This 230-nucleotide sequence from Hansenula ciferrii belongs to the Rfam family "Small nucleolar RNA snR31". Rfam links the family to the GO terms nucleolus and RNA processing. It is annotated as an H/ACA-box small nucleolar RNA. Taxonomically the source falls in Hansenula (Eukaryota, Fungi, Ascomycota, Wickerhamomycetaceae). A reference for the family is Dandekar and Tollervey (1993), "Identification and functional analysis of a novel yeast small nucleolar RNA", Nucleic Acids Res. The family's consensus secondary structure was predicted with WAR.
RNA sequence: AAUUCUUUAUCAAAAUCAUAUGUUCACGAGGCGUCACCGAGGUAUCUUUAUUUACAAUUACUUUGGUUCGAUGGCCUUGUGAGUAGCAUUCAUUUGCUGGUGGGUUCCGUCCUCAUCCAAUGAUGCUUAUACUGUGUUGACAUAUGAUAGAAAGAAUUAUUAAAGGAUGUAUCUCCGUUCAAAAGAGACAAUGUCAAGGACUUGAACGGUCAUGAAUUCCUUUAACAUCA
Numbered sequence: 001a002a003u004u005c006u007u008u009a010u011c012a013a014a015a016u017c018a019u020a021u022g023u024u025c026a027c028g029a030g031g032c033g034u035c036a037c038c039g040a041g042g043u044a045u046c047u048u049u050a051u052u053u054a055c056a057a058u059u060a061c062u063u064u065g066g067u068u069c070g071a072u073g074g075c076c077u078u079g080u081g082a083g084u085a086g087c088a089u090u091c092a093u094u095u096g097c098u099g100g101u102g103g104g105u106u107c108c109g110u111c112c113u114c115a116u117c118c119a120a121u122g123a124u125g126c127u128u129a130u131a132c133u134g135u136g137u138u139g140a141c142a143u144a145u146g147a148u149a150g151a152a153a154g155a156a157u158u159a160u161u162a163a164a165g166g167a168u169g170u171a172u173c174u175c176c177g178u179u180c181a182a183a184a185g186a187g188a189c190a191a192u193g194u195c196a197a198g199g200a201c202u203u204g205a206a207c208g209g210u211c212a213u214g215a216a217u218u219c220c221u222u223u224a225a226c227a228u229c230a
Base pairs, nucleotide, nucleotide: 016147017146018145019144020143021142022141023140024082025081026080027079028078029077030076031075032073033072034071035070036067037066038065039064049060050059085137086135087134088133162223163222164221166219167218175209176208177207178206179205180204181203182202